[Rfam]
RNA sequence: GCAUGGCUGAAUUCUGUUCCAGCUGCUGUGUGAUGGAUACAGUCAGACACCAUGCAAAAGCAUGCUCUCAUUUCUGCUUCAUUUUUUGACUUAGCGCUUCUUUCAGCCUCAGUCAAAUGUUUGGGAAUGAGUACAAGU
Numbered sequence: 001g002c003a004u005g006g007c008u009g010a011a012u013u014c015u016g017u018u019c020c021a022g023c024u025g026c027u028g029u030g031u032g033a034u035g036g037a038u039a040c041a042g043u044c045a046g047a048c049a050c051c052a053u054g055c056a057a058a059a060g061c062a063u064g065c066u067c068u069c070a071u072u073u074c075u076g077c078u079u080c081a082u083u084u085u086u087u088g089a090c091u092u093a094g095c096g097c098u099u100c101u102u103u104c105a106g107c108c109u110c111a112g113u114c115a116a117a118u119g120u121u122u123g124g125g126a127a128u129g130a131g132u133a134c135a136a137g138u
Base pairs, nucleotide, nucleotide: 001055002054003053004052005051006050014042015041016040017039067131068130069129071126072125073124074123076121084119086117087115088114089113090112091111093109094108
Annotation: Shown here is a 138-nucleotide RNA sequence from Takifugu flavidus, a member of the family "Small nucleolar RNA SNORA15". The literature on the family includes a 2001 paper in EMBO J by Huttenhofer et al., "RNomics: an experimental approach that identifies 201 candidates for novel, small, non-messenger RNAs in mouse". From the family's description: ACA15 is a member of the H/ACA class of snoRNA that guide the sites of modification of uridines to pseudouridines. Rfam 15.1 lists 974 matches to the family in 624 species. The source organism's lineage runs through Eukaryota, Opisthokonta, Clupeocephala, Ctenosquamata and Takifugu. The base pairs follow the family's consensus structure, which was predicted with RNAfold. Rfam classes the family as an H/ACA-box small nucleolar RNA.